[Rfam]
RNA sequence: CCACACAUACGCGGGGGCUCUCACGCGCCGAGGGCUGAGAUGGCGACAGGCGGUCGUCGACCGCCUGAACCUGUCCGGGUAAUGCCGGCGUAGGGAGUCCAUCAUGAGCACAC
Numbered sequence: 001c002c003a004c005a006c007a008u009a010c011g012c013g014g015g016g017g018c019u020c021u022c023a024c025g026c027g028c029c030g031a032g033g034g035c036u037g038a039g040a041u042g043g044c045g046a047c048a049g050g051c052g053g054u055c056g057u058c059g060a061c062c063g064c065c066u067g068a069a070c071c072u073g074u075c076c077g078g079g080u081a082a083u084g085c086c087g088g089c090g091u092a093g094g095g096a097g098u099c100c101a102u103c104a105u106g107a108g109c110a111c112a113c
Stems, first nucleotide, its partner, number of pairs: 009098002011064004016058001017035005043057004070094004075088004

Overview
Shown here is a 113-nucleotide sequence from Gordonia crocea, a member of the family "TPP riboswitch aptamer (THI element)". Its family is annotated with thiamine pyrophosphate binding in the Gene Ontology. The organism belongs to Gordonia, within Bacteria.